[Rfam]
The record is a 95-nucleotide sequence from Pseudoselenomonas ruminis, which matches "skipping-rope RNA" in Rfam. The base pairs follow the family's consensus structure, which is taken from published work. It is annotated as a small RNA. It scores 51 bits against the family's covariance model.
RNA sequence: AUUCUCUGAGGUGGUAAACUUCGUUGCGACCACACGCCGAUGGCAUGACAGGGGCAACCCGAGAGAUGCGGGAGAGGCGACGCCCGCCGGAGAAU
Numbered sequence: 001a002u003u004c005u006c007u008g009a010g011g012u013g014g015u016a017a018a019c020u021u022c023g024u025u026g027c028g029a030c031c032a033c034a035c036g037c038c039g040a041u042g043g044c045a046u047g048a049c050a051g052g053g054g055c056a057a058c059c060c061g062a063g064a065g066a067u068g069c070g071g072g073a074g075a076g077g078c079g080a081c082g083c084c085c086g087c088c089g090g091a092g093a094a095u
Base pairs, nucleotide, nucleotide: 001095002094003093004092005091006090007089008088011033012032013031014030015029023081024080025079026078027077035063036055037054038053068087069086070085071084072083